Makes More Granules Regulator RNA (mmgR): a 77-nucleotide RNA from Breoghania sp. L-A4.
Nucleotides: 077
Stems, first nucleotide, its partner, number of pairs: 008021004040062006046055003
Number, partner (000 for none) and nucleotide at each position: 001000u002000a003000u004000c005000g006000u007000a008021g009020c010019c011018c012000u013000c014000c015000u016000u017000u018011g019010g020009g021008c022000g023000u024000u025000u026000c027000c028000u029000c030000c031000c032000u033000a034000g035000a036000c037000u038000u039000g040062g041061g042060c043059c044058g045057c046055c047054u048053c049000g050000a051000a052000a053048g054047a055046g056000u057045g058044c059043g060042g061041c062040c063000u064000u065000u066000u067000u068000u069000u070000u071000g072000g073000c074000u075000c076000c077000g
A reference for the family is Ceizel Borella et al. (2016), "Expression of the Sinorhizobium meliloti small RNA gene mmgR is controlled by the nitrogen source", FEMS Microbiol Lett.
NCBI's taxonomy places the organism under Bacteria, Pseudomonadati, Alphaproteobacteria, Stappiaceae, Breoghania.
Rfam's curators write: SuhB later renamed mmgR (makes more granules regulator) was a putative non-coding RNA found multiple times in the Agrobacterium tumefaciens genome and related alpha-proteobacteria. Other non-coding RNAs uncovered in the same analysis include: speF, ybhL, metA, and serC.Several studies inSinorhizobium meliloti showed that suhB element is indeed a non-coding RNA:firstly it was detected on Northern blot and called Sm8RNA, secondly in an RNAseq study referred to as SmelC689.The mutant phenotype's (strain lacking the small RNA) cytoplasm contains higher content of polyhydroxybutyrate (PBH)storage granules than wild type strain. The sRNA is required to limit the PBH intracellular accumulation when the nitrogen-fixing Sinorhizobium meliloti is under condition of surplus carbon in relation to nitrogen.